RNA sequence: CAGACCGAUGACCGUCAGUAAACGUAACAAGAGUAAGGCAACCGCUAGUGAUUGGUAACCCCAAUGCACGAUGCUGUUGUCUACUCUUGCACAGAAUGGAAUCAUGUUGUAAUUACAGUGCAAGAAGGUAAUUAUAACCCAUUUAAUUGAUAGCUAUGAUUAGUAAAAUGUGUAGCUGUAGAGAGUAUGUUAAAGACUGUCACCUCUGCGUGAUUGCAAGUGAACAGUGCCCCCUGGGAAGAGCUCUACAGUGUGAAGUGUAAAUAAAAAUAGCUGUUAUUCAAUUAGAUUAGCUAAUUAGAUGAUUAAC
Numbered sequence: 001c002a003g004a005c006c007g008a009u010g011a012c013c014g015u016c017a018g019u020a021a022a023c024g025u026a027a028c029a030a031g032a033g034u035a036a037g038g039c040a041a042c043c044g045c046u047a048g049u050g051a052u053u054g055g056u057a058a059c060c061c062c063a064a065u066g067c068a069c070g071a072u073g074c075u076g077u078u079g080u081c082u083a084c085u086c087u088u089g090c091a092c093a094g095a096a097u098g099g100a101a102u103c104a105u106g107u108u109g110u111a112a113u114u115a116c117a118g119u120g121c122a123a124g125a126a127g128g129u130a131a132u133u134a135u136a137a138c139c140c141a142u143u144u145a146a147u148u149g150a151u152a153g154c155u156a157u158g159a160u161u162a163g164u165a166a167a168a169u170g171u172g173u174a175g176c177u178g179u180a181g182a183g184a185g186u187a188u189g190u191u192a193a194a195g196a197c198u199g200u201c202a203c204c205u206c207u208g209c210g211u212g213a214u215u216g217c218a219a220g221u222g223a224a225c226a227g228u229g230c231c232c233c234c235u236g237g238g239a240a241g242a243g244c245u246c247u248a249c250a251g252u253g254u255g256a257a258g259u260g261u262a263a264a265u266a267a268a269a270a271u272a273g274c275u276g277u278u279a280u281u282c283a284a285u286u287a288g289a290u291u292a293g294c295u296a297a298u299u300a301g302a303u304g305a306u307u308a309a310c
Base pairs, nucleotide, nucleotide: 028089029088030087031086032085034083037081038080039079040078041077042076044074045073048069049068050067053063054062100307101306102305103304104303105302107137108136109135110134111133112132113131114130115129116128141290142289143288144287145286146285147284148283149282150281151276152275153274154273155272156271157270160267161266162265176251177250178249179248180247181246182245183244196228197227198226199225200224201222202221203220230238231237232236294301295300
RNA: Betacoronavirus 3'UTR